Notes
Shown here is a 253-nucleotide RNA from Octopus sinensis, a member of the family "RNase MRP".
RNA sequence: AUAAUCCUUUAAGACUUGCUUUCGGGUCACAAACGGAGAUGAACCUAUCUCAUUAUCACCGAAGGAAAGUCCCCAGACCGAGCGUAGAGACUACUGAUUUGAGGAAUCGUGUCAAACCUAUCGGCUGCCUCCCGUUGAUGCAAUGACGCCAUUUGGCUGAGCUGGGGGUUGUUGGUAGGUAUAUUCGUCAUAGUACAGACAAAUGCAAGUGGCACUUUGGUGUUAACAGAAUGGGGAUUACUCUGAAGGAAUU
Numbered sequence: 001a002u003a004a005u006c007c008u009u010u011a012a013g014a015c016u017u018g019c020u021u022u023c024g025g026g027u028c029a030c031a032a033a034c035g036g037a038g039a040u041g042a043a044c045c046u047a048u049c050u051c052a053u054u055a056u057c058a059c060c061g062a063a064g065g066a067a068a069g070u071c072c073c074c075a076g077a078c079c080g081a082g083c084g085u086a087g088a089g090a091c092u093a094c095u096g097a098u099u100u101g102a103g104g105a106a107u108c109g110u111g112u113c114a115a116a117c118c119u120a121u122c123g124g125c126u127g128c129c130u131c132c133c134g135u136u137g138a139u140g141c142a143a144u145g146a147c148g149c150c151a152u153u154u155g156g157c158u159g160a161g162c163u164g165g166g167g168g169u170u171g172u173u174g175g176u177a178g179g180u181a182u183a184u185u186c187g188u189c190a191u192a193g194u195a196c197a198g199a200c201a202a203a204u205g206c207a208a209g210u211g212g213c214a215c216u217u218u219g220g221u222g223u224u225a226a227c228a229g230a231a232u233g234g235g236g237a238u239u240a241c242u243c244u245g246a247a248g249g250a251a252u253u
Base pairs, nucleotide, nucleotide: 003253004252005251007249008247009246010245011244014210015209016208017207018206019205022063023061025060026059027058036051037050038049039048040047041046067239068238071236072235073234074233083096084094085093086092097112098111100109101108102107114182116180121175122174123173124172125171131168132167133166140162141161148157149156150155212223213222214221215220
Annotation: The family's RNA type in Rfam is ribozyme. The family's consensus secondary structure is taken from published work. It scores 98 bits against the family's covariance model. The source organism's lineage runs through Eukaryota, Protostomia, Octopodiformes, Octopodidae and Octopus.